[Rfam]
RNA sequence: CAAAAUUUUAUUUAGUGGUAGAAACAGAGAAACCCAAAGGCUGCAGACAAGAAUAACCUGGAGAGACUCUUGACAGCACAGGUCAGCAUACCUGCAGCUGCCACUCAGCUUUCCUCUACUU
Numbered sequence: 001c002a003a004a005a006u007u008u009u010a011u012u013u014a015g016u017g018g019u020a021g022a023a024a025c026a027g028a029g030a031a032a033c034c035c036a037a038a039g040g041c042u043g044c045a046g047a048c049a050a051g052a053a054u055a056a057c058c059u060g061g062a063g064a065g066a067c068u069c070u071u072g073a074c075a076g077c078a079c080a081g082g083u084c085a086g087c088a089u090a091c092c093u094g095c096a097g098c099u100g101c102c103a104c105u106c107a108g109c110u111u112u113c114c115u116c117u118a119c120u121u
Stems, first nucleotide, its partner, number of pairs: 001027001006023006060114006076101002079094004